The record is a 70-nucleotide RNA sequence from Metapseudomonas furukawaii, which matches "narK RNA" in Rfam. It is annotated as a cis-regulatory element. The organism belongs to Metapseudomonas, within Bacteria. The base pairs follow the family's consensus structure, which is taken from published work.

RNA sequence: GGCCUGGCCCUUGCUAAAGGAACCCCAAGGCAGCCAAUGGCGGUUGCCACACCCACGACAAAGACGCCGU
Numbered sequence: 001g002g003c004c005u006g007g008c009c010c011u012u013g014c015u016a017a018a019g020g021a022a023c024c025c026c027a028a029g030g031c032a033g034c035c036a037a038u039g040g041c042g043g044u045u046g047c048c049a050c051a052c053c054c055a056c057g058a059c060a061a062a063g064a065c066g067c068c069g070u
Base pairs, nucleotide, nucleotide: 029048030047031046032045033044034043035042